[Rfam]
RNA sequence: GCAAUAGAAUAGGAUUUUUCAAGGGUGGUCGGCACACUCCCAAACAGAAAGGGGGUGAUGCUGUAUGACAGUUUUUCAAGCUUUGAUGCUUGCAAUAUCUUUUGCCAGUCUAGUCAUUGCGAUUCUGUCAUUUCAUAACCAUAAAAAAUAAUCCACCCUUGAGUUAGAAGGCUCAGGUGGAUUAUUCUACCCAUAUAGCCGACCCCCUUAGAGGGAGCCGUCUAUUGCUGGACCGGACAUGUUGCUGCAUGUUCG
Numbered sequence: 001g002c003a004a005u006a007g008a009a010u011a012g013g014a015u016u017u018u019u020c021a022a023g024g025g026u027g028g029u030c031g032g033c034a035c036a037c038u039c040c041c042a043a044a045c046a047g048a049a050a051g052g053g054g055g056u057g058a059u060g061c062u063g064u065a066u067g068a069c070a071g072u073u074u075u076u077c078a079a080g081c082u083u084u085g086a087u088g089c090u091u092g093c094a095a096u097a098u099c100u101u102u103u104g105c106c107a108g109u110c111u112a113g114u115c116a117u118u119g120c121g122a123u124u125c126u127g128u129c130a131u132u133u134c135a136u137a138a139c140c141a142u143a144a145a146a147a148a149u150a151a152u153c154c155a156c157c158c159u160u161g162a163g164u165u166a167g168a169a170g171g172c173u174c175a176g177g178u179g180g181a182u183u184a185u186u187c188u189a190c191c192c193a194u195a196u197a198g199c200c201g202a203c204c205c206c207c208u209u210a211g212a213g214g215g216a217g218c219c220g221u222c223u224a225u226u227g228c229u230g231g232a233c234c235g236g237a238c239a240u241g242u243u244g245c246u247g248c249a250u251g252u253u254c255g
Stems, first nucleotide, its partner, number of pairs: 001228005007222002013200001015198002018163008027153003035057002038055004067129005080093002103121003167186002203217001205215002234255009
This 255-nucleotide RNA sequence from Neobacillus massiliamazoniensis belongs to the Rfam family "BsrG". By type it is a small RNA. For this family Rfam cites "Novel small RNA-encoding genes in the intergenic regions of Bacillus subtilis" (Saito et al., Gene, 2008). Rfam's curators write: bsrE, bsrG and bsrH pair through intermolecular interactions with antisense sRNAs. The family has 6 seed sequences and 614 matches in Rfam 15.1.